[Rfam]
RNA sequence: ACCGAGUUCGGUAACGCUAGCUUGUAACCCAAGUGGGGGCAUUAAGGUGAUGGAACAUGGCUUUGGCUAUGCUUGGUUGGGCUGGUGGUUGUUCCAUGUUGGCUUGCCCGCUCCAAGUUGAAAGUUGGGUCAUGGUUCUUGGGCGAAGGCUCAAGUGUCCUGGCUCCUAAACUAGAGGGCACCGCGUUAGGCUGGCUUCACAGAGCAACGAUCACCUCUGGCUUCUAACAGUGGAGGGAUUACAAGCUGCUGCACCAUUAGCCCACAAUGCCUGGUGUUCCUAGCUCUUGAACCGUCACUUUU
Numbered sequence: 001a002c003c004g005a006g007u008u009c010g011g012u013a014a015c016g017c018u019a020g021c022u023u024g025u026a027a028c029c030c031a032a033g034u035g036g037g038g039g040c041a042u043u044a045a046g047g048u049g050a051u052g053g054a055a056c057a058u059g060g061c062u063u064u065g066g067c068u069a070u071g072c073u074u075g076g077u078u079g080g081g082c083u084g085g086u087g088g089u090u091g092u093u094c095c096a097u098g099u100u101g102g103c104u105u106g107c108c109c110g111c112u113c114c115a116a117g118u119u120g121a122a123a124g125u126u127g128g129g130u131c132a133u134g135g136u137u138c139u140u141g142g143g144c145g146a147a148g149g150c151u152c153a154a155g156u157g158u159c160c161u162g163g164c165u166c167c168u169a170a171a172c173u174a175g176a177g178g179g180c181a182c183c184g185c186g187u188u189a190g191g192c193u194g195g196c197u198u199c200a201c202a203g204a205g206c207a208a209c210g211a212u213c214a215c216c217u218c219u220g221g222c223u224u225c226u227a228a229c230a231g232u233g234g235a236g237g238g239a240u241u242a243c244a245a246g247c248u249g250c251u252g253c254a255c256c257a258u259u260a261g262c263c264c265a266c267a268a269u270g271c272c273u274g275g276u277g278u279u280c281c282u283a284g285c286u287c288u289u290g291a292a293c294c295g296u297c298a299c300u301u302u303u
Base pairs, nucleotide, nucleotide: 002039003038004023005022006021007020008019010017028037029036030035044302045301046300047299048298049297050296051295052294053293056290057289059287060286062284063283065281066280069278070277071276072275073274075272076271077270079264080263081262082261083260084259085258086257087256090254091253093252100249101248102247103246104245105244106243108238109237111236112235113234114233115232117229118228119227120226122224123223124222125221127166128165129164130163131162132161134159135158136157138155139154140153141152142151143150144149173220174219175218176217177216178215185210186209187208192203193202194201

Plant signal recognition particle RNA: a 303-nucleotide sequence from Arachis duranensis. NCBI's taxonomy places the organism under Eukaryota, Magnoliopsida, eudicotyledons, Fabales, Arachis. The family is grouped with related families in Rfam's "SRP clan". The family's RNA type in Rfam is non-coding RNA gene. Pairs were carried over by alignment from the consensus structure, which is taken from published work. The match comes from Rfam's covariance-model search (232 bits).